RNA sequence: CCGUGCUAGAUGGGGAGGUAGCGGUGCCCUGUAACUCGCAAUCCGCUGUAGCGAGGUUGAAUUCCUGCUUGAGGUUAUGCUGAUGCGAGGCCUGGUGUUCGUGAACAGUGCUGACAGUCGGGUCCUCCGCAAUGGAUACUUGUGAACCCGGUCAGGUCCGGAAGGAAGCAGCCGUAAGCAAGCCCAUCCAUGUGCCGGGGGAGUGCCUGGCUCGAGCUGGAAUCGAGAGUGCCGUUCGGGUCGCAUGGAUCGAGGGCAGGUGCACGG
Numbered sequence: 001c002c003g004u005g006c007u008a009g010a011u012g013g014g015g016a017g018g019u020a021g022c023g024g025u026g027c028c029c030u031g032u033a034a035c036u037c038g039c040a041a042u043c044c045g046c047u048g049u050a051g052c053g054a055g056g057u058u059g060a061a062u063u064c065c066u067g068c069u070u071g072a073g074g075u076u077a078u079g080c081u082g083a084u085g086c087g088a089g090g091c092c093u094g095g096u097g098u099u100c101g102u103g104a105a106c107a108g109u110g111c112u113g114a115c116a117g118u119c120g121g122g123u124c125c126u127c128c129g130c131a132a133u134g135g136a137u138a139c140u141u142g143u144g145a146a147c148c149c150g151g152u153c154a155g156g157u158c159c160g161g162a163a164g165g166a167a168g169c170a171g172c173c174g175u176a177a178g179c180a181a182g183c184c185c186a187u188c189c190a191u192g193u194g195c196c197g198g199g200g201g202a203g204u205g206c207c208u209g210g211c212u213c214g215a216g217c218u219g220g221a222a223u224c225g226a227g228a229g230u231g232c233c234g235u236u237c238g239g240g241u242c243g244c245a246u247g248g249a250u251c252g253a254g255g256g257c258a259g260g261u262g263c264a265c266g267g
Base pairs, nucleotide, nucleotide: 001267002266003265004264005263006262009058010057011056012030013029014028015027017025019023035055036054037053038052039051064260065259066258067257068256069255070254073251074250075249076248081243082242083241084240086238087237088236089235093231094230098227099226100225101224106220107218108217109216116212117211118210119209120208121207122206123205124201125200126199127198128197129196130192131191133190134189135188136187137186139182140181141180142179143178149174150173151172152171157166158165159164
Notes:
A member of the RNA family "Bacterial large signal recognition particle RNA" from Paenibacillus sp. 32O-W, 267 nucleotides long. The match comes from Rfam's covariance-model search (200 bits). Pairs were carried over by alignment from the consensus structure, which is taken from published work. It is annotated as a non-coding RNA gene.